Listeria sRNA rli28: a 203-nucleotide sequence from Vagococcus carniphilus.
RNA sequence: UGUUUUAUGUUAUACUAUUUAGGUAGCAACUUAAUUGUUGCAGGUAGAUAAGUUUGUGAUGGUGGCGGGAUCUAAUCGAGAGUGAGGUGGUGCUUAUGUGCAUUCAACCAAAAUCUAACGAAAGGAGCCAGCCUUUUGCUUGAAUCUAUUCUAGCGAUUGCAAUUCCAAUUGUCGGUUUAAUUACUGCUAUUGUGAAUCUUGU
Numbered sequence: 001u002g003u004u005u006u007a008u009g010u011u012a013u014a015c016u017a018u019u020u021a022g023g024u025a026g027c028a029a030c031u032u033a034a035u036u037g038u039u040g041c042a043g044g045u046a047g048a049u050a051a052g053u054u055u056g057u058g059a060u061g062g063u064g065g066c067g068g069g070a071u072c073u074a075a076u077c078g079a080g081a082g083u084g085a086g087g088u089g090g091u092g093c094u095u096a097u098g099u100g101c102a103u104u105c106a107a108c109c110a111a112a113a114u115c116u117a118a119c120g121a122a123a124g125g126a127g128c129c130a131g132c133c134u135u136u137u138g139c140u141u142g143a144a145u146c147u148a149u150u151c152u153a154g155c156g157a158u159u160g161c162a163a164u165u166c167c168a169a170u171u172g173u174c175g176g177u178u179u180a181a182u183u184a185c186u187g188c189u190a191u192u193g194u195g196a197a198u199c200u201u202g203u
Base pairs, nucleotide, nucleotide: 063175064174065173066172083118085116086115087114088113138155139154140153142151143150144149181198182197183196185195187194188193